This 63-nucleotide sequence from Dissostichus mawsoni belongs to the Rfam family "Selenocysteine insertion sequence 1". Rfam links the family to the GO term selenocysteine incorporation.
[Rfam]
RNA sequence: GUGUGUUUUAAUGACGAUCUGUUUCUAAACUCUGCUGAGAGAACAGCUCUGAUGUUCACACAU
Numbered sequence: 001g002u003g004u005g006u007u008u009u010a011a012u013g014a015c016g017a018u019c020u021g022u023u024u025c026u027a028a029a030c031u032c033u034g035c036u037g038a039g040a041g042a043a044c045a046g047c048u049c050u051g052a053u054g055u056u057c058a059c060a061c062a063u
Stems, first nucleotide, its partner, number of pairs: 001063005016049002019046006030039003